[Rfam]
RNA sequence: GCUGACCUUACAGCAAUUCUAUCACUCUACAUUCCAAAGAAAUCCUUCGUCAGCUG
Numbered sequence: 001g002c003u004g005a006c007c008u009u010a011c012a013g014c015a016a017u018u019c020u021a022u023c024a025c026u027c028u029a030c031a032u033u034c035c036a037a038a039g040a041a042a043u044c045c046u047u048c049g050u051c052a053g054c055u056g
Stems, first nucleotide, its partner, number of pairs: 001054006
The family of this 56-nucleotide RNA sequence from Dictyostelium discoideum is "Class I RNA from Dictyostelium". The base pairs follow the family's consensus structure, which is taken from published work. For this family Rfam cites "Novel non-coding RNAs in Dictyostelium discoideum and their expression during development" (Aspegren et al., Nucleic Acids Res, 2004). Rfam classes the family as a non-coding RNA gene. The sequence is in the family's curated seed alignment. Dictyostelium Class I RNA was first reported for Aspegren et al. 2004 in Dictyostelium discoideum.